[Rfam]
Nucleotides: 085
Base pairs, nucleotide, nucleotide: 009077010076011075012074016070017069018068019067020066021065022064023063024062027059028058029057030056031055032054034052035051036050037047038046
Number, partner (000 for none) and nucleotide at each position: 001000a002000c003000a004000u005000u006000a007000c008000u009077u010076g011075c012074g013000a014000u015000c016070g017069g018068u019067u020066u021065u022064c023063a024062c025000u026000u027059u028058g029057a030056u031055c032054u033000g034052a035051g036050a037047g038046c039000u040000u041000c042000a043000a044000a045000u046038g047037c048000a049000a050036u051035c052034u053000g054032a055031g056030a057029u058028c059027a060000u061000c062024g063023u064022g065021a066020a067019a068018g069017c070016u071000a072000g073000u074012u075011g076010c077009a078000g079000g080000c081000a082000g083000u084000g085000u
Notes:
mir-81 microRNA precursor family: an 85-nucleotide RNA sequence from Caenorhabditis bovis. The organism belongs to Caenorhabditis, within Eukaryota. The base pairs follow the family's consensus structure, which was predicted with RNAalifold. The family has 10 seed sequences and 68 matches in Rfam 15.1. It scores 82 bits against the family's covariance model. For this family Rfam cites "An abundant class of tiny RNAs with probable regulatory roles in Caenorhabditis elegans" (Lau et al., Science, 2001).